[Rfam]
RNA: Streptococcus sRNA SpF59 (ldcC RNA)
RNA sequence: UGACCGCCAUCCCUUUGGGGAAGGCUGAGGCUACACGGACGGCCGGGUCAAAUGCCGA
Numbered sequence: 001u002g003a004c005c006g007c008c009a010u011c012c013c014u015u016u017g018g019g020g021a022a023g024g025c026u027g028a029g030g031c032u033a034c035a036c037g038g039a040c041g042g043c044c045g046g047g048u049c050a051a052a053u054g055c056c057g058a
Stems, first nucleotide, its partner, number of pairs: 001050005006025003010021004